[Rfam]
Annotation: The family of this 113-nucleotide sequence from Pedococcus cremeus is "SAM (S-adenosyl methionine) riboswitch aptamer". The organism belongs to Pedococcus, within Bacteria. Rfam's curators write: SAM-IV is a mRNA element that regulates gene expression via direct sensing of S-adenosylmethionine (SAM or AdoMet). SAM-IV riboswitches share conserved nucleotide positions with the previously described SAM-I riboswitches sequence analysis and molecular recognition experiments suggest that SAM-I and SAM-IV riboswitches share similar ligand binding sites, but have different scaffolds.

RNA sequence: GGUCAUGAGUGCCAGCGCACAGCCCCGGCUUGCUGGCCAGCAACCCUCCUCCGCGGUGGGGUGCUCCGGGUGACGACCGGGCCACCUGCGCCCGCAGGUGGCAAGCGCGGACC
Dot-bracket structure: ((((....(.((((((....((......)).)))))))(((..(((.((.....))..))).))).........))))..(((((((((....)))))))))...........
The match comes from Rfam's covariance-model search (114 bits).
The family's consensus secondary structure is taken from published work.